[Rfam]
RNA sequence: UCGAUGGAUCCGAUUGCCGCUUGAUUAUUGGUUGACCAAUAAUUCAAGAGGAAAGUCCGGGCUCCGUAGGGCAUGAUGCCGGGUAAUUCCCGGGCUUAUAAAAGACUUUCGUCUUUUAUAAGACAGACAGUGCAACAGAAAGUAUACCGCUACAUCGUAAAAUCCUAUGGAUUUUACGAUCAGUAAGGGUGAAAGGGUGGGGUAAGAGCCCACCGCAUAUCUGGUAACAGGUAUGGCACGGCAAACCUCAUCAGGAGCAAAGUUGAGCAACGGAAUGAAGGGCCCCUUCGUUACUCCGUGGGUAAACUGCGUUGACAGUAUUGGUAACAAUACUGCGAGAUAGAUGGCAAUCCUACGGUUUCGGUAUCCGAAACCGUUUGACAGAACCCGGCUUAUGGAUCCAUCGUUUUU
Numbered sequence: 001u002c003g004a005u006g007g008a009u010c011c012g013a014u015u016g017c018c019g020c021u022u023g024a025u026u027a028u029u030g031g032u033u034g035a036c037c038a039a040u041a042a043u044u045c046a047a048g049a050g051g052a053a054a055g056u057c058c059g060g061g062c063u064c065c066g067u068a069g070g071g072c073a074u075g076a077u078g079c080c081g082g083g084u085a086a087u088u089c090c091c092g093g094g095c096u097u098a099u100a101a102a103a104g105a106c107u108u109u110c111g112u113c114u115u116u117u118a119u120a121a122g123a124c125a126g127a128c129a130g131u132g133c134a135a136c137a138g139a140a141a142g143u144a145u146a147c148c149g150c151u152a153c154a155u156c157g158u159a160a161a162a163u164c165c166u167a168u169g170g171a172u173u174u175u176a177c178g179a180u181c182a183g184u185a186a187g188g189g190u191g192a193a194a195g196g197g198u199g200g201g202g203u204a205a206g207a208g209c210c211c212a213c214c215g216c217a218u219a220u221c222u223g224g225u226a227a228c229a230g231g232u233a234u235g236g237c238a239c240g241g242c243a244a245a246c247c248u249c250a251u252c253a254g255g256a257g258c259a260a261a262g263u264u265g266a267g268c269a270a271c272g273g274a275a276u277g278a279a280g281g282g283c284c285c286c287u288u289c290g291u292u293a294c295u296c297c298g299u300g301g302g303u304a305a306a307c308u309g310c311g312u313u314g315a316c317a318g319u320a321u322u323g324g325u326a327a328c329a330a331u332a333c334u335g336c337g338a339g340a341u342a343g344a345u346g347g348c349a350a351u352c353c354u355a356c357g358g359u360u361u362c363g364g365u366a367u368c369c370g371a372a373a374c375c376g377u378u379u380g381a382c383a384g385a386a387c388c389c390g391g392c393u394u395a396u397g398g399a400u401c402c403a404u405c406g407u408u409u410u411u
Base pairs, nucleotide, nucleotide: 002406003405004404005403006402007401008400009399010398012352013351014350015349016348017347018346020048021047022046023045024044025042026041027040028039029038030037053394054393055392057391058390059389060388061387062257063256064255065254069285070284071283072282074253075252076251077250078249079093080092081091082090083089094124095122096121097120098119099118100117101116102115103114104113105112106111125248126247130246131245132242133241147188148187149184150183151182154180155179156178157177158176159175160174161173162172163171164170196214197213198212199211200210201209215237216235217234218233219232220231221230222229223228261308262307263306264305270299271298272297273296274295276290277289278288279287280286316335317334318333319332320331321330322329323328
Dot-bracket structure: .(((((((((.(((((((.(((((((((((......)))))).)))))....[[[.[[[[[((((...[[[[.((((((((((.....)))))(((((((((((((....)))))))))))).)((...((((.............(((((..(((((((((((.....))))))))))).)))..)).......((((((.......))))))(((((((((....)))))))).)...))..)))))))))))))...((((.....(((((.(((((.]]]])))))....))))).....)))).......((((((((....))))))))..........)))))))..................................]]]]]]]]...))))))))).....